The family of this 86-nucleotide RNA from Manduca sexta is "mir-275 microRNA precursor family". Rfam links the family to the GO terms miRNA-mediated post-transcriptional gene silencing and RISC complex. It is one of the family's seed sequences. The family's consensus secondary structure was predicted with RNAalifold.

[Rfam]
RNA sequence: CAGGCGGCGGCGCCGCGCGCUACUCCGGCGCCGAGGCUGUCCUCACCGAGUCAGGUACCUGAAGUAGCGCGCGCCGCCUCCCCCGA
Dot-bracket structure: ........((((.(.(((((((.......(((..((((..........)))).)))........))))))).).))))........